Fluoride riboswitch aptamer (crcB RNA motif): a 62-nucleotide RNA sequence from Thermanaerosceptrum fracticalcis. The organism belongs to Thermanaerosceptrum, within Bacteria. The literature on the family includes a 2012 paper in Science by Baker et al., "Widespread genetic switches and toxicity resistance proteins for fluoride".
[Rfam]
RNA sequence: AAUACCAAUGGCGAUGGGGCUCGCCGAAAAUGCUAACAUCAGCUGAUGGCUCCUACCUCCUU
Number, nucleotide and partner (000 for none) at each position: 001a000002a000003u000004a000005c000006c000007a000008a000009u000010g025011g024012c023013g022014a000015u000016g053017g052018g051019g050020c049021u048022c013023g012024c011025c010026g000027a000028a000029a000030a000031u000032g043033c042034u041035a000036a000037c000038a000039u000040c000041a034042g033043c032044u000045g000046a000047u000048g021049g020050c019051u018052c017053c016054u000055a000056c000057c000058u000059c000060c000061u000062u000